[Rfam]
RNA sequence: UGCCGCAGAGCGCUCCCGUCCCUCUGCGUGCUGUAUUAAUCCAUAUAAGAAAAUCUCUUUUAAUGAGGAGUGAUACAGUUACGAACUCUCUAGAGCCAUAAUUAGAGCAAACUAAUUGAAGUUGUGUUUUGACACACUUUCCAAAUUCACGGGUACUGCAUGACAUAUUCACAACACUACUGCUGCACAGCCAUGGCGACAGCAAAAUCAUUAGCCUAAUAACGCUUAUUUGCAUUCUUAUCAUGCCAGCAGCACGCCGUUAAAUACUGCUUCAACCACUGCUCGUUUACUCUGAAAGUUUCCACUGAAAGAUAUUAACAGUAAUUAUUAGUACUUUAGUGGAAGCUCUGAUGUUAAGGA
Numbered sequence: 001u002g003c004c005g006c007a008g009a010g011c012g013c014u015c016c017c018g019u020c021c022c023u024c025u026g027c028g029u030g031c032u033g034u035a036u037u038a039a040u041c042c043a044u045a046u047a048a049g050a051a052a053a054u055c056u057c058u059u060u061u062a063a064u065g066a067g068g069a070g071u072g073a074u075a076c077a078g079u080u081a082c083g084a085a086c087u088c089u090c091u092a093g094a095g096c097c098a099u100a101a102u103u104a105g106a107g108c109a110a111a112c113u114a115a116u117u118g119a120a121g122u123u124g125u126g127u128u129u130u131g132a133c134a135c136a137c138u139u140u141c142c143a144a145a146u147u148c149a150c151g152g153g154u155a156c157u158g159c160a161u162g163a164c165a166u167a168u169u170c171a172c173a174a175c176a177c178u179a180c181u182g183c184u185g186c187a188c189a190g191c192c193a194u195g196g197c198g199a200c201a202g203c204a205a206a207a208u209c210a211u212u213a214g215c216c217u218a219a220u221a222a223c224g225c226u227u228a229u230u231u232g233c234a235u236u237c238u239u240a241u242c243a244u245g246c247c248a249g250c251a252g253c254a255c256g257c258c259g260u261u262a263a264a265u266a267c268u269g270c271u272u273c274a275a276c277c278a279c280u281g282c283u284c285g286u287u288u289a290c291u292c293u294g295a296a297a298g299u300u301u302c303c304a305c306u307g308a309a310a311g312a313u314a315u316u317a318a319c320a321g322u323a324a325u326u327a328u329u330a331g332u333a334c335u336u337u338a339g340u341g342g343a344a345g346c347u348c349u350g351a352u353g354u355u356a357a358g359g360a
Stems, first nucleotide, its partner, number of pairs: 034353005040343005047336003055070006075328001077326006086095003105284005118140004123136005152258002156252001181198005202246003216232001218230004
Record summary
Rfam assigns this 360-nucleotide RNA from Pedionomus torquatus to the family "ncRNA Repressor of NFAT (nuclear factor of activated T cells)". The source organism's lineage runs through Eukaryota, Bilateria, Craniata, Archosauria and Pedionomus. The match comes from Rfam's covariance-model search (359 bits). The family has 24 seed sequences and 522 matches in Rfam 15.1.